Overview: A member of the RNA family "Class I RNA from Dictyostelium" from Dictyostelium discoideum, 55 nucleotides long. From the family's description: Dictyostelium Class I RNA was first reported for Aspegren et al. 2004 in Dictyostelium discoideum. Sucgang et al. 2011 identify putative homologs of Class I RNA in D. discoideum and D. purpureum. Avesson et al. 2011 report that Class I RNA present a down regulation during the development of social amoeba Dictyostelium discoideum, they also found that deletion of one of the Class I RNAs, DdR-21, results in aberrant development. Kjellin et al. 2020 report an extended number of expressed Class I RNA genes in class Dictyostelia, in their analysis they remark that Class I RNA appear to be unique to dictyostelid social amoebas, and they hypothesise that Class I RNAs were involved in evolution of multicellularity in Dictyostelia. On this family, see Kjellin et al., Genome Res 2021: "Abundantly expressed class of noncoding RNAs conserved through the multicellular evolution of dictyostelid social amoebas".
[Rfam]
RNA sequence: GUUGACCUUACAGCAAACCCUACAGUCAUUUCAUAAGAAAAACUACCGUCAACUG
Numbered sequence: 001g002u003u004g005a006c007c008u009u010a011c012a013g014c015a016a017a018c019c020c021u022a023c024a025g026u027c028a029u030u031u032c033a034u035a036a037g038a039a040a041a042a043c044u045a046c047c048g049u050c051a052a053c054u055g
Base pairs, nucleotide, nucleotide: 001053002052003051004050005049006048